[Rfam]
RNA: TD-1 RNA
Organism: Treponema pedis
RNA sequence: UUUAGACUUUCGAGUUUGCCUUUAGGCAAACUUCGUUCAUUGUAUGCACUUUUUCAGCAUCGCUUACAAAAGUGCAUAAUAAACAAUCCUCGAUUGUUCACACAAUCUCCGGUUGUUUAUUUUAUAG
Numbered sequence: 001u002u003u004a005g006a007c008u009u010u011c012g013a014g015u016u017u018g019c020c021u022u023u024a025g026g027c028a029a030a031c032u033u034c035g036u037u038c039a040u041u042g043u044a045u046g047c048a049c050u051u052u053u054u055c056a057g058c059a060u061c062g063c064u065u066a067c068a069a070a071a072g073u074g075c076a077u078a079a080u081a082a083a084c085a086a087u088c089c090u091c092g093a094u095u096g097u098u099c100a101c102a103c104a105a106u107c108u109c110c111g112g113u114u115g116u117u118u119a120u121u122u123u124a125u126a127g
Base pairs, nucleotide, nucleotide: 012034013033014031015030016029017028018027019026020025046075047074048073049072050071051070052069053068078121079120080119081118082117083116084115085114086113088112089111092107093106094105095104096103097102